This 134-nucleotide RNA from Caldicellulosiruptor owensensis belongs to the Rfam family "Molybdenum/Tungsten riboswitch aptamer (Moco RNA motif)".
RNA sequence: AUUUUAGAAUCUUUCCGAGCCAUAGCAACCUAAAAAGAGAAGUUUAUUCUCUUCAUGGUGCUAUGGCCGAUAGGGUACAGAUUUGGGAAACCGCUGUGCCUCCCGCUUUGGAAAGGAAAGAUUCUUCUAAAACA
Numbered sequence: 001a002u003u004u005u006a007g008a009a010u011c012u013u014u015c016c017g018a019g020c021c022a023u024a025g026c027a028a029c030c031u032a033a034a035a036a037g038a039g040a041a042g043u044u045u046a047u048u049c050u051c052u053u054c055a056u057g058g059u060g061c062u063a064u065g066g067c068c069g070a071u072a073g074g075g076u077a078c079a080g081a082u083u084u085g086g087g088a089a090a091c092c093g094c095u096g097u098g099c100c101u102c103c104c105g106c107u108u109u110g111g112a113a114a115g116g117a118a119a120g121a122u123u124c125u126u127c128u129a130a131a132a133c134a
Stems, first nucleotide, its partner, number of pairs: 006125001011120006019067008028059003035053007073101008084093003102111002